[Rfam]
RNA sequence: AACAGCCAAAGGCAAACUUACUGAAAAGUGAGGACGCAAAGUCUACAGAUCUAAGGUUGCGUAAAAGUGAUAGUAAAACCUUUUACCAAUUAAGAUGGCUGGGCUGCCUGA
Numbered sequence: 001a002a003c004a005g006c007c008a009a010a011g012g013c014a015a016a017c018u019u020a021c022u023g024a025a026a027a028g029u030g031a032g033g034a035c036g037c038a039a040a041g042u043c044u045a046c047a048g049a050u051c052u053a054a055g056g057u058u059g060c061g062u063a064a065a066a067g068u069g070a071u072a073g074u075a076a077a078a079c080c081u082u083u084u085a086c087c088a089a090u091u092a093a094g095a096u097g098g099c100u101g102g103g104c105u106g107c108c109u110g111a
Stems, first nucleotide, its partner, number of pairs: 012037002017032006040105004046101003049096003056090004
Rfam assigns this 111-nucleotide RNA from Bacillus sp. THAF10 to the family "c-di-GMP-I riboswitch aptamer". The base pairs follow the family's consensus structure, which is taken from published work. It scores 63 bits against the family's covariance model. Taxonomically the source falls in Bacillus (Bacteria, Bacillota, Bacilli, Caryophanales).